[Rfam]
RNA sequence: UAUUCUCUCCUUUGUAAGUCGCUUUGGAUGAAAGCGUCUGCUAAAUGAAUACAU
Numbered sequence: 001u002a003u004u005c006u007c008u009c010c011u012u013u014g015u016a017a018g019u020c021g022c023u024u025u026g027g028a029u030g031a032a033a034g035c036g037u038c039u040g041c042u043a044a045a046u047g048a049a050u051a052c053a054u
Stems, first nucleotide, its partner, number of pairs: 013043001014041003020036006
This 54-nucleotide RNA from Ameiurus melas belongs to the Rfam family "UnaL2 LINE 3' element". The match comes from Rfam's covariance-model search (56 bits). About the family: The eel long interspersed element (LINE) UnaL2 and its partner short interspersed element (SINE) share a conserved 3' tail containing a stem-loop that is critical for their retrotransposition. Presumably, the first step of retrotransposition is the recognition of their 3' tails by UnaL2-encoded reverse transcriptase. The solution structure of a 17-nucleotide RNA derived from the 3' tail of UnaL2 was determined by NMR. Its family is annotated with transposition, RNA-mediated in the Gene Ontology.